[Rfam]
RNA sequence: CCUCCCGCUUGACUGCCACGGCUUCUUCUCAGCGUGGGUUUCGUGGCUAUGCUUACGGGACAGAGCAAAGCAGCCGUGAUCUGAGGAGGGAGGGCUGGCCUGUGUCCUCCCUCUGUAUGAAAUGGCUGGACAGUGCGGU
Numbered sequence: 001c002c003u004c005c006c007g008c009u010u011g012a013c014u015g016c017c018a019c020g021g022c023u024u025c026u027u028c029u030c031a032g033c034g035u036g037g038g039u040u041u042c043g044u045g046g047c048u049a050u051g052c053u054u055a056c057g058g059g060a061c062a063g064a065g066c067a068a069a070g071c072a073g074c075c076g077u078g079a080u081c082u083g084a085g086g087a088g089g090g091a092g093g094g095c096u097g098g099c100c101u102g103u104g105u106c107c108u109c110c111c112u113c114u115g116u117a118u119g120a121a122a123u124g125g126c127u128g129g130a131c132a133g134u135g136c137g138g139u
Stems, first nucleotide, its partner, number of pairs: 004059004016046004073126004091114004
RNA: Small nucleolar RNA SNORA29
Organism: Phyllostomus discolor